RNA sequence: GGUCGGGAGUAUGAGGGCUAUACAAUACCUGUAAAGGGAAAUCCCUCUGGCCGGUUCUGUUGGACGGUUGUUGAAGCUCCCGACUUUUUUGCG
Number, nucleotide and partner (000 for none) at each position: 001g085002g084003u083004c082005g081006g080007g079008a078009g077010u000011a000012u000013g047014a046015g045016g044017g000018c000019u041020a000021u000022a000023c000024a000025a000026u000027a000028c037029c036030u035031g000032u000033a000034a000035a030036g029037g028038g000039a000040a000041a019042u000043c000044c016045c015046u014047c013048u070049g069050g068051c067052c066053g065054g000055u000056u000057c000058u000059g000060u000061u000062g000063g000064a000065c053066g052067g051068u050069u049070g048071u000072u000073g000074a000075a000076g000077c009078u008079c007080c006081c005082g004083a003084c002085u001086u000087u000088u000089u000090u000091g000092c000093g000
Rfam assigns this 93-nucleotide RNA sequence from Halodesulfovibrio spirochaetisodalis to the family "sRNA-Xcc1". A reference for the family is Wengelnik et al. (1996), "HrpG, a key hrp regulatory protein of Xanthomonas campestris pv. vesicatoria is homologous to two-component response regulators", Mol Plant Microbe Interact. Rfam 15.1 lists 421 matches to the family in 299 species.